Background
Rfam assigns this 187-nucleotide sequence from Rosa chinensis to the family "Small nucleolar RNA Z112". Its Rfam clan is "SNORD49 clan". Gene Ontology terms of the family: RNA processing and nucleolus.
RNA sequence: GAUCCAGUGAGGAAGCAUACCCAAAUUGAUAGGAAGUGCCGUAUGACACUUUAAACAGCGGCGGCUACAUGGAACGAGCCACCCCUUGUGCCCAUCCACCGGUGAGUAUUAGUUACUCAUCGGUCGGGAACAGAGGUGGCUCCGGUGUGCCGCCGUGUGUGUGAUUUGGAACGGGACUCUGAGGGUC
Numbered sequence: 001g002a003u004c005c006a007g008u009g010a011g012g013a014a015g016c017a018u019a020c021c022c023a024a025a026u027u028g029a030u031a032g033g034a035a036g037u038g039c040c041g042u043a044u045g046a047c048a049c050u051u052u053a054a055a056c057a058g059c060g061g062c063g064g065c066u067a068c069a070u071g072g073a074a075c076g077a078g079c080c081a082c083c084c085c086u087u088g089u090g091c092c093c094a095u096c097c098a099c100c101g102g103u104g105a106g107u108a109u110u111a112g113u114u115a116c117u118c119a120u121c122g123g124u125c126g127g128g129a130a131c132a133g134a135g136g137u138g139g140c141u142c143c144g145g146u147g148u149g150c151c152g153c154c155g156u157g158u159g160u161g162u163g164a165u166u167u168g169g170a171a172c173g174g175g176a177c178u179c180u181g182a183g184g185g186u187c
Base pairs, nucleotide, nucleotide: 001187002186003185004184005183076142077141078140079139080138081137082136083135087132088131089130091128092127093126098124099123100122101121105117106116107115108114
Lineage of the source: Eukaryota > Mesangiospermae > Rosales > Rosaceae > Rosa.
It scores 73 bits against the family's covariance model.
Rfam 15.1 lists 427 matches to the family in 103 species.
The base pairs follow the family's consensus structure, which was predicted with PFOLD.